[Rfam]
RNA: TPP riboswitch aptamer (THI element)
Organism: Allosaccharopolyspora coralli
RNA sequence: GCGCCGCGCCACGGGAGUCCGGUCCGCCGGACUGAGAGGAGGGCACGCCCUCGACCGUCCGCACCUGAUCCGGAUCAUGCCGGCGCAGGGAGGCGAACACGAUCAGCC
Numbered sequence: 001g002c003g004c005c006g007c008g009c010c011a012c013g014g015g016a017g018u019c020c021g022g023u024c025c026g027c028c029g030g031a032c033u034g035a036g037a038g039g040a041g042g043g044c045a046c047g048c049c050c051u052c053g054a055c056c057g058u059c060c061g062c063a064c065c066u067g068a069u070c071c072g073g074a075u076c077a078u079g080c081c082g083g084c085g086c087a088g089g090g091a092g093g094c095g096a097a098c099a100c101g102a103u104c105a106g107c108c
Stems, first nucleotide, its partner, number of pairs: 007095004011058004017032005039052005064089004070083004